[Rfam]
RNA sequence: GGUCAUGAGUGUCAGCGCACAGCCCCGGCUUGCUGACCGGCAACCCUCCAUCCGCGGUGGGGUGCUCCGGGUGAUGACCUGGCUGCGACGGAAGUCGCCGCAGCAAGCGCGGGUC
Numbered sequence: 001g002g003u004c005a006u007g008a009g010u011g012u013c014a015g016c017g018c019a020c021a022g023c024c025c026c027g028g029c030u031u032g033c034u035g036a037c038c039g040g041c042a043a044c045c046c047u048c049c050a051u052c053c054g055c056g057g058u059g060g061g062g063u064g065c066u067c068c069g070g071g072u073g074a075u076g077a078c079c080u081g082g083c084u085g086c087g088a089c090g091g092a093a094g095u096c097g098c099c100g101c102a103g104c105a106a107g108c109g110c111g112g113g114u115c
Stems, first nucleotide, its partner, number of pairs: 001079004009038001011037006021030002039066003044062003048057002082104006089097003
A member of the RNA family "SAM (S-adenosyl methionine) riboswitch aptamer" from Gordonia sihwensis, 115 nucleotides long. Pairs were carried over by alignment from the consensus structure, which is taken from published work. The family is grouped with related families in Rfam's "SAM clan". NCBI's taxonomy places the organism under Bacteria, Bacillati, Actinomycetota, Actinomycetes, Gordonia sihwensis. Rfam's curators write: SAM-IV is a mRNA element that regulates gene expression via direct sensing of S-adenosylmethionine (SAM or AdoMet). SAM-IV riboswitches share conserved nucleotide positions with the previously described SAM-I riboswitches sequence analysis and molecular recognition experiments suggest that SAM-I and SAM-IV riboswitches share similar ligand binding sites, but have different scaffolds.